[Rfam]
RNA sequence: UCGACCACAUCUCCUUAUCACUUUUCCAGCCCAGCUAUCCAUUCUGUAUUCGUUGGACGGAGAACUGAUAAGGGCAUGUGUCUGA
Numbered sequence: 001u002c003g004a005c006c007a008c009a010u011c012u013c014c015u016u017a018u019c020a021c022u023u024u025u026c027c028a029g030c031c032c033a034g035c036u037a038u039c040c041a042u043u044c045u046g047u048a049u050u051c052g053u054u055g056g057a058c059g060g061a062g063a064a065c066u067g068a069u070a071a072g073g074g075c076a077u078g079u080g081u082c083u084g085a
Base pairs, nucleotide, nucleotide: 012074013073014072015071016070017069018068019067020066022064023063024062025061026060027059030056031055
RNA: mir-184 microRNA precursor family
Organism: Oncorhynchus kisutch